The family of this 61-nucleotide part of an RNA from Coccidioides posadasii is "Eukaryotic large subunit ribosomal RNA". Gene Ontology terms of the family: ribosome and structural constituent of ribosome. The base pairs follow the family's consensus structure, which is taken from published work. NCBI's taxonomy places the organism under Eukaryota, Opisthokonta, Pezizomycotina, Eurotiomycetidae, Coccidioides posadasii. Its Rfam clan is "LSU clan".

[Rfam]
RNA sequence: UGUGGAGAUUUGUAAUAAAGUCUUGAAAGUAAUCCUGGGUUGAACAGUCUCUAGUGCAGAU
Numbered sequence: 001u002g003u004g005g006a007g008a009u010u011u012g013u014a015a016u017a018a019a020g021u022c023u024u025g026a027a028a029g030u031a032a033u034c035c036u037g038g039g040u041u042g043a044a045c046a047g048u049c050u051c052u053a054g055u056g057c058a059g060a061u
Stems, first nucleotide, its partner, number of pairs: 001056001003053008012045002020040002028033001